Rfam assigns this 98-nucleotide sequence from Clostridium fungisolvens to the family "Purine riboswitch aptamer". It scores 71 bits against the family's covariance model.
RNA sequence: AUAAAAACGAACUAAAUUACUCGUAUAUCCCUUGGAUAAGGCAAGGAGUCUCUACCGGAAACCGUAAAUUCCCGACUAUGAGUGAAAUUGGUAUUCUA
Numbered sequence: 001a002u003a004a005a006a007a008c009g010a011a012c013u014a015a016a017u018u019a020c021u022c023g024u025a026u027a028u029c030c031c032u033u034g035g036a037u038a039a040g041g042c043a044a045g046g047a048g049u050c051u052c053u054a055c056c057g058g059a060a061a062c063c064g065u066a067a068a069u070u071c072c073c074g075a076c077u078a079u080g081a082g083u084g085a086a087a088u089u090g091g092u093a094u095u096c097u098a
Stems, first nucleotide, its partner, number of pairs: 018084008030046005056074003060070002
Dot-bracket structure: .................((((((((....(((((.......))))).........(((.((.......)).)))..))))))))..............
Rfam links the family to the GO term purine nucleobase biosynthetic process. The family's consensus secondary structure is taken from published work.